[Rfam]
RNA sequence: GGCUCUGCUUCCACCCUUCUAGGAUCAGCAGCAUCCGCCCAAACCCCUCAGCAGCAGGGAUCUUUAAUGGAAGCACAGAC
Numbered sequence: 001g002g003c004u005c006u007g008c009u010u011c012c013a014c015c016c017u018u019c020u021a022g023g024a025u026c027a028g029c030a031g032c033a034u035c036c037g038c039c040c041a042a043a044c045c046c047c048u049c050a051g052c053a054g055c056a057g058g059g060a061u062c063u064u065u066a067a068u069g070g071a072a073g074c075a076c077a078g079a080c
Stems, first nucleotide, its partner, number of pairs: 001080001003078002006075002009072005022036004045059004
RNA: bZIP non canonical Hac1/Xbp1 intron